[Rfam]
RNA sequence: GAAUGGGCAACGGAAUCCCAAAAGCAGCUGUUUUGCUCUGUUUCCCAGCUGCACUUGGAUUCCGUUCCUUGCUCUUUUGCCC
Numbered sequence: 001g002a003a004u005g006g007g008c009a010a011c012g013g014a015a016u017c018c019c020a021a022a023a024g025c026a027g028c029u030g031u032u033u034u035g036c037u038c039u040g041u042u043u044c045c046c047a048g049c050u051g052c053a054c055u056u057g058g059a060u061u062c063c064g065u066u067c068c069u070u071g072c073u074c075u076u077u078u079g080c081c082c
Stems, first nucleotide, its partner, number of pairs: 002073001004071003010065009020056002024052007

Rfam assigns this 82-nucleotide RNA from Ophiophagus hannah to the family "mir-191 microRNA precursor family". The sequence is in the family's curated seed alignment. The organism belongs to Ophiophagus, within Eukaryota.